[Rfam]
mir-5697 microRNA precursor family: a 59-nucleotide RNA from Paragonimus skrjabini miyazakii. Its family is annotated with miRNA-mediated post-transcriptional gene silencing and RISC complex in the Gene Ontology. Rfam 15.1 lists 28 matches to the family in 22 species.

RNA sequence: GAGUUGUGACAUGAUAAUGGGUGUUGAACGGAAACACCCAUUAUCAUGUCACAACUCAA
Dot-bracket structure: (((((((((((.((((((((((...(........))))))))))).)))))))))))..
NCBI's taxonomy places the organism under Eukaryota, Lophotrochozoa, Trematoda, Troglotrematidae, Paragonimus.